[Rfam]
RNA sequence: GCAACCUGAAGCUGGCGCACGGCCAGCUCGCGGUGUUCCGCUCGCUGCUGGGCAUCUCGUGGAUGUGGUUCUUCGGCGCGGUGUUCCUGGCCAACUUCCCGUCGUUUGCGAAGGAAGUGCUG
Numbered sequence: 001g002c003a004a005c006c007u008g009a010a011g012c013u014g015g016c017g018c019a020c021g022g023c024c025a026g027c028u029c030g031c032g033g034u035g036u037u038c039c040g041c042u043c044g045c046u047g048c049u050g051g052g053c054a055u056c057u058c059g060u061g062g063a064u065g066u067g068g069u070u071c072u073u074c075g076g077c078g079c080g081g082u083g084u085u086c087c088u089g090g091c092c093a094a095c096u097u098c099c100c101g102u103c104g105u106u107u108g109c110g111a112a113g114g115a116a117g118u119g120c121u122g
Base pairs, nucleotide, nucleotide: 010049011048012047014045017042021038022037024035025034051121052120053119054118055117057115058114060112063105064104065103067099068098072094075091077089078088080087081086
A member of the RNA family "Burkholderia RNA 11" from Mitsuaria sp. 7, 122 nucleotides long. The literature on the family includes a 2013 paper in Genomics by Ramos et al., "Experimental identification of small non-coding regulatory RNAs in the opportunistic human pathogen Burkholderia cenocepacia J2315". From the family's description: Co-purified with Hfq, expression confirmed by Northern blot. Predicted target marZ. Overlaps coding sequence. Its family is annotated with protein binding in the Gene Ontology.